[Rfam]
RNA: MIR396 microRNA precursor family
RNA sequence: CUUUGUAUUUUUCCACAGCUUUCUUGAACUGCAUCAUCUUUGCAUGAGGCCACAGACUUGGCAUGGCAUUUUUUGCGGUUCAAUAAAGCUGUGGGAAGAUACAAACA
Numbered sequence: 001c002u003u004u005g006u007a008u009u010u011u012u013c014c015a016c017a018g019c020u021u022u023c024u025u026g027a028a029c030u031g032c033a034u035c036a037u038c039u040u041u042g043c044a045u046g047a048g049g050c051c052a053c054a055g056a057c058u059u060g061g062c063a064u065g066g067c068a069u070u071u072u073u074u075g076c077g078g079u080u081c082a083a084u085a086a087a088g089c090u091g092u093g094g095g096a097a098g099a100u101a102c103a104a105a106c107a
Stems, first nucleotide, its partner, number of pairs: 003104005013094003017090006024083004029078005